Source information
Rfam assigns this 148-nucleotide RNA from Baekduia soli to the family "c-di-AMP riboswitch aptamer (ydaO/yuaA leader)". A search with the family's covariance model found it, with a score of 72 bits. The organism belongs to Baekduia, within Bacteria. This family represents a conserved RNA structure found upstream of the ydaO and yuaA genes in Bacillus subtilis and related genes in other bacteria.
[Rfam]
RNA sequence: CGAUCACUACCGCUGAAUCUCCGGCCGGCAGGUCCGGCACGGGGAGCGGGGGACCCACCAUGCACCGGGGCGAAUCGCAUCCCGCGUAGCGCCGCUCUUUCGGCGCGAGCCCGUCAGCUAACCCCGCAAGCCCAUUGAAAGAGGACCG
Numbered sequence: 001c002g003a004u005c006a007c008u009a010c011c012g013c014u015g016a017a018u019c020u021c022c023g024g025c026c027g028g029c030a031g032g033u034c035c036g037g038c039a040c041g042g043g044g045a046g047c048g049g050g051g052g053a054c055c056c057a058c059c060a061u062g063c064a065c066c067g068g069g070g071c072g073a074a075u076c077g078c079a080u081c082c083c084g085c086g087u088a089g090c091g092c093c094g095c096u097c098u099u100u101c102g103g104c105g106c107g108a109g110c111c112c113g114u115c116a117g118c119u120a121a122c123c124c125c126g127c128a129a130g131c132c133c134a135u136u137g138a139a140a141g142a143g144g145a146c147c148g
Stems, first nucleotide, its partner, number of pairs: 012131003018045006046127006056067001068112003076086003089106004